RNA sequence: CUGAUUAGGACGCAUGGGUCGACGUUCGUGCAACGAGCCCUUUCCCUAUGCUGCAACAGAGCAGCAGGUGGAUGCGCUAAUAUCAG
Numbered sequence: 001c002u003g004a005u006u007a008g009g010a011c012g013c014a015u016g017g018g019u020c021g022a023c024g025u026u027c028g029u030g031c032a033a034c035g036a037g038c039c040c041u042u043u044c045c046c047u048a049u050g051c052u053g054c055a056a057c058a059g060a061g062c063a064g065c066a067g068g069u070g071g072a073u074g075c076g077c078u079a080a081u082a083u084c085a086g
Base pairs, nucleotide, nucleotide: 001086002085003084004083005082009078011076012075013074016040017039018038023035024034025033026032043072044071045070047068050065051064052063053062054061
RNA: L4-Archaeoglobi ribosomal protein leades